A member of the RNA family "eL15-Euryarchaeota ribosomal protein leader", 53 nucleotides long.
RNA sequence: ACGGGAUCCGUCCCGUUGAAAGGAAUGUAGCUCUACGUGAGCCGAACCUUAGG
Number, nucleotide and partner (000 for none) at each position: 001a016002c015003g014004g013005g012006a000007u000008c000009c000010g000011u000012c005013c004014c003015g002016u001017u000018g000019a000020a000021a049022g048023g047024a000025a000026u000027g000028u000029a000030g042031c041032u040033c039034u000035a000036c000037g000038u000039g033040a032041g031042c030043c000044g000045a000046a000047c023048c022049u021050u000051a000052g000053g000